The record is an 86-nucleotide sequence from Pan troglodytes, which matches "mir-515 microRNA precursor family" in Rfam. Its family is annotated with RISC complex and miRNA-mediated post-transcriptional gene silencing in the Gene Ontology. The source organism's lineage runs through Eukaryota, Metazoa, Dipnotetrapodomorpha, Catarrhini and Pan. Its Rfam clan is "mir-290 clan". Rfam's curators put it in the seed alignment. On this family, see Bentwich et al., Nat Genet 2005: "Identification of hundreds of conserved and nonconserved human microRNAs".
RNA sequence: CUCAGGCUGUGACUCUCCAAAGGGAAGAAUUUUCUCUUGUCUAAAAGAAAAGAACGCACUUCCCUUUAGAGUGUUACCGUGUGAGA
Numbered sequence: 001c002u003c004a005g006g007c008u009g010u011g012a013c014u015c016u017c018c019a020a021a022g023g024g025a026a027g028a029a030u031u032u033u034c035u036c037u038u039g040u041c042u043a044a045a046a047g048a049a050a051a052g053a054a055c056g057c058a059c060u061u062c063c064c065u066u067u068a069g070a071g072u073g074u075u076a077c078c079g080u081g082u083g084a085g086a
Base pairs, nucleotide, nucleotide: 001085002084003083004082006080007079009077010076011075012074013073015071016070017069019067020066021065022064023063024062025061026060027059030056032054033053034052037051038050